[Rfam]
RNA: Selenocysteine transfer RNA
RNA sequence: GGAGGCGAGAGGGUGCCUGGUGGCCCCCGCGGUCUUCAAAACCGCAGGUCGCGAGUAUCUCGGGACGGCGGGUUCGAUUCCCGUUCGCCUCC
Numbered sequence: 001g002g003a004g005g006c007g008a009g010a011g012g013g014u015g016c017c018u019g020g021u022g023g024c025c026c027c028c029g030c031g032g033u034c035u036u037c038a039a040a041a042c043c044g045c046a047g048g049u050c051g052c053g054a055g056u057a058u059c060u061c062g063g064g065a066c067g068g069c070g071g072g073u074u075c076g077a078u079u080c081c082c083g084u085u086c087g088c089c090u091c092c
Stems, first nucleotide, its partner, number of pairs: 001092009012027002015024003029045005048066003052062001069083004